[Rfam]
RNA sequence: UCCUCUGUGGUCCAGUGGUUCUAGACAGUUCAACAGUCCUGACCCAAAUUGUGAAAUGUUUAGGACCACUUGACCAUCG
Numbered sequence: 001u002c003c004u005c006u007g008u009g010g011u012c013c014a015g016u017g018g019u020u021c022u023a024g025a026c027a028g029u030u031c032a033a034c035a036g037u038c039c040u041g042a043c044c045c046a047a048a049u050u051g052u053g054a055a056a057u058g059u060u061u062a063g064g065a066c067c068a069c070u071u072g073a074c075c076a077u078c079g
Base pairs, nucleotide, nucleotide: 014070015069016068017067018066019065021063022062024060025059026058027057029055030054031053032052
This 79-nucleotide sequence from Myripristis murdjan belongs to the Rfam family "mir-203 microRNA precursor family". The base pairs follow the family's consensus structure, which was predicted with RNAalifold. On this family, see Lim et al., Science 2003: "Vertebrate microRNA genes".